[Rfam]
RNA sequence: ACCUUUUAUUCGCUUAAUCACUAAUGAGCGGGGGAACCAAACUUGAUAGAGAAAAUUCUUCUAUCUGGGGUGAACCUUACAUUGUAAGAGGGGGUACUCUCCAUCCCUAACCCGACAGCUAACCUCGUAGGCGUUGUUAUUUUUCAAG
Numbered sequence: 001a002c003c004u005u006u007u008a009u010u011c012g013c014u015u016a017a018u019c020a021c022u023a024a025u026g027a028g029c030g031g032g033g034g035a036a037c038c039a040a041a042c043u044u045g046a047u048a049g050a051g052a053a054a055a056u057u058c059u060u061c062u063a064u065c066u067g068g069g070g071u072g073a074a075c076c077u078u079a080c081a082u083u084g085u086a087a088g089a090g091g092g093g094g095u096a097c098u099c100u101c102c103a104u105c106c107c108u109a110a111c112c113c114g115a116c117a118g119c120u121a122a123c124c125u126c127g128u129a130g131g132c133g134u135u136g137u138u139a140u141u142u143u144u145c146a147a148g
Base pairs, nucleotide, nucleotide: 011133012132013131014130018027019026020025028128029127030126031125032124033123038067039066068113069112070111076088077087078086079085091107092106093105094104
RNA: c-di-AMP riboswitch aptamer (ydaO/yuaA leader)